RNA: Alphaproteobacterial ar14
Organism: Mesorhizobium sp. YM1C-6-2
RNA sequence: AGAUUUCGGCGGCUACUCCUCCCGGCUGCCGAUCAGGCCGGCGUUCCCUCCCCCUCCAGAACGCUGGCCACCCUUAAGAACCCGCCGGACAACUCCGGCGGGUUCUUUGU
Numbered sequence: 001a002g003a004u005u006u007c008g009g010c011g012g013c014u015a016c017u018c019c020u021c022c023c024g025g026c027u028g029c030c031g032a033u034c035a036g037g038c039c040g041g042c043g044u045u046c047c048c049u050c051c052c053c054c055u056c057c058a059g060a061a062c063g064c065u066g067g068c069c070a071c072c073c074u075u076a077a078g079a080a081c082c083c084g085c086c087g088g089a090c091a092a093c094u095c096c097g098g099c100g101g102g103u104u105c106u107u108u109g110u
Stems, first nucleotide, its partner, number of pairs: 007031003011027002036069010078105011